Notes: This 73-nucleotide RNA sequence from Medicago truncatula belongs to the Rfam family "MIR2629 microRNA precursor family". The organism belongs to Medicago, within Eukaryota. The base pairs follow the family's consensus structure, which was predicted with RNAalifold. Gene Ontology terms of the family: miRNA-mediated post-transcriptional gene silencing and RISC complex.
Nucleotides: 073
Base pairs, nucleotide, nucleotide: 012069013068016064017063018062019061020060021059022058023057024056025055026054027053028052029051
Number, partner (000 for none) and nucleotide at each position: 001000u002000a003000c004000c005000g006000a007000g008000g009000u010000u011000u012069u013068c014000c015000u016064c017063g018062g019061c020060a021059g022058u023057u024056a025055a026054c027053u028052g029051c030000a031000u032000c033000c034000g035000g036000u037000u038000u039000u040000u041000g042000a043000a044000u045000u046000c047000u048000u049000c050000g051029g052028c053027a054026g055025u056024u057023a058022a059021c060020u061019g062018c063017c064016g065000a066000u067000a068013g069012a070000a071000c072000a073000a